A member of the RNA family "Streptomyces RNA 3920" from Streptomyces sp. ADI93-02, 124 nucleotides long. Identified by deep sequencing of transcriptome at the end of exponential growth phase. Sequencing size consistent with northern blot size. Streptomyces specific. The organism belongs to Streptomyces, within Bacteria. On this family, see Vockenhuber et al., RNA Biol 2011: "Deep sequencing-based identification of small non-coding RNAs in Streptomyces coelicolor".
[Rfam]
RNA sequence: GAUAGGUCGCUGUCGCUACUGUGAUUGGACACUGACGCACAGUCAACUAGCCUUGUCCAGGCGGUUCUCGGCGCAGGAACCGGGGCGGUCCGAGUCACGAGGGGGGAGGCUCGGGCCGCUCGUC
Numbered sequence: 001g002a003u004a005g006g007u008c009g010c011u012g013u014c015g016c017u018a019c020u021g022u023g024a025u026u027g028g029a030c031a032c033u034g035a036c037g038c039a040c041a042g043u044c045a046a047c048u049a050g051c052c053u054u055g056u057c058c059a060g061g062c063g064g065u066u067c068u069c070g071g072c073g074c075a076g077g078a079a080c081c082g083g084g085g086c087g088g089u090c091c092g093a094g095u096c097a098c099g100a101g102g103g104g105g106g107a108g109g110c111u112c113g114g115g116c117c118g119c120u121c122g123u124c
Base pairs, nucleotide, nucleotide: 001014002013003012004011005010015051016050017049018048021032022031023030033045034044035043036042058073061072062071064069074082076081084120085119086118087117088116089115090114091113092112093111094110095109096108098105